[Rfam]
RNA sequence: ACUUGUCACCGGGGGAGCCCGGCCCUAUGCGGCCUGGGCUGAGAGGGCGAAAGCCCGACUCUUGGAACCUGAUCCGGGUCAUACCGGCGUAGGGAGAGUGACCAGAGAAAGGC
Numbered sequence: 001a002c003u004u005g006u007c008a009c010c011g012g013g014g015g016a017g018c019c020c021g022g023c024c025c026u027a028u029g030c031g032g033c034c035u036g037g038g039c040u041g042a043g044a045g046g047g048c049g050a051a052a053g054c055c056c057g058a059c060u061c062u063u064g065g066a067a068c069c070u071g072a073u074c075c076g077g078g079u080c081a082u083a084c085c086g087g088c089g090u091a092g093g094g095a096g097a098g099u100g101a102c103c104a105g106a107g108a109a110a111g112g113c
Base pairs, nucleotide, nucleotide: 006101007100008099009098011062012061013060014059017039018038019037020036021035046055047054048053068093069092070091071090074087075086076085077084
The family of this 113-nucleotide sequence from Allomeiothermus silvanus is "TPP riboswitch aptamer (THI element)". Rfam describes the family as follows. Vitamin B(1) in its active form thiamin pyrophosphate (TPP) is an essential coenzyme that is synthesised by coupling of pyrimidine and thiazole moieties in bacteria. A search with the family's covariance model found it, with a score of 68 bits. Lineage of the source: Bacteria > Thermotogati > Deinococcota > Thermaceae > Allomeiothermus silvanus.